[Rfam]
Nucleotides: 058
Stems, first nucleotide, its partner, number of pairs: 005026008027050006
Number, partner (000 for none) and nucleotide at each position: 001000g002000a003000a004000a005026g006025g007024u008023u009022g010021u011020g012019u013000u014000u015000u016000a017000g018000c019012g020011c021010a022009c023008a024007a025006c026005u027050g028049g029048a030047u031046g032045c033000g034000u035000a036000a037000c038000a039000u040000a041000c042000c043000g044000a045032g046031c047030a048029u049028c050027c051000c052000a053000a054000u055000u056000a057000g058000g